[Rfam]
RNA sequence: CAUGGAGAAAGCUGGCCUGGCUGGUAGGGAACAGAGAAGCCGCUUUGUUUACAUGCUUAUUCCAUG
Numbered sequence: 001c002a003u004g005g006a007g008a009a010a011g012c013u014g015g016c017c018u019g020g021c022u023g024g025u026a027g028g029g030a031a032c033a034g035a036g037a038a039g040c041c042g043c044u045u046u047g048u049u050u051a052c053a054u055g056c057u058u059a060u061u062c063c064a065u066g
Stems, first nucleotide, its partner, number of pairs: 001066007009058004014049003019045002022042004
Rfam assigns this 66-nucleotide sequence from Octodon degus to the family "MAT2A 3'UTR stem loop F". By type it is a cis-regulatory element. The organism belongs to Octodon, within Eukaryota.